A member of the RNA family "mir-31 microRNA precursor family" from Microctonus aethiopoides, 81 nucleotides long.
The literature on the family includes a 2023 paper in bioRxiv [Preprint] by Ma et al., "Structure of pre-miR-31 reveals an active role in Dicer processing".
The organism belongs to Microctonus, within Eukaryota.
[Rfam]
RNA sequence: GAACGUUUAGAAGGCAAGAUGUCGGCAUAGCUGAUGCAUUUAGGAAUUCGGCUGUGUCACAUCCAGCCAACCAAACCAACU
Numbered sequence: 001g002a003a004c005g006u007u008u009a010g011a012a013g014g015c016a017a018g019a020u021g022u023c024g025g026c027a028u029a030g031c032u033g034a035u036g037c038a039u040u041u042a043g044g045a046a047u048u049c050g051g052c053u054g055u056g057u058c059a060c061a062u063c064c065a066g067c068c069a070a071c072c073a074a075a076c077c078a079a080c081u
Base pairs, nucleotide, nucleotide: 005076006075007074008073010071013068014067015066018063019062020061021060024058025057026056027055028054029053030052031051